Rfam assigns this 77-nucleotide RNA sequence from Mycolicibacterium brumae to the family "Fluoride riboswitch aptamer (crcB RNA motif)".
RNA sequence: ACUGAUCUCGGCGAUGGAGCUCGCCGGGAACCCUGGGGUUCCGAACCGCCUCACCGGCUGAUAGCCCCUGCGAACCG
Dot-bracket structure: .........((((..[[.[[[))))......................(((.....)))....]]].]].........

The match comes from Rfam's covariance-model search (42 bits).